[Rfam]
Nucleotides: 080
Stems, first nucleotide, its partner, number of pairs: 002079004033053001036051004
Number, partner (000 for none) and nucleotide at each position: 001000g002079a003078a004077u005076g006000a007000a008000a009000u010000g011000a012000u013000g014000a015000g016000c017000u018000u019000u020000u021000u022000u023000u024000a025000u026000u027000u028000g029000c030000u031000u032000u033053g034000a035000u036051u037050g038049c039048c040000g041000u042000g043000a044000u045000g046000a047000u048039g049038g050037c051036a052000a053033c054000a055000u056000u057000a058000g059000u060000a061000u062000u063000a064000g065000c066000u067000c068000u069000a070000g071000c072000u073000g074000a075000u076005c077004a078003u079002u080000c
The family of this 80-nucleotide sequence from Cucumis sativus is "Small nucleolar RNA Z102/R77".
The base pairs follow the family's consensus structure, which was predicted with PFOLD.
For this family Rfam cites "The high diversity of snoRNAs in plants: identification and comparative study of 120 snoRNA genes from Oryza sativa" (Chen et al., Nucleic Acids Res, 2003).
By type it is a C/D-box small nucleolar RNA.
Gene Ontology terms of the family: nucleolus and RNA processing.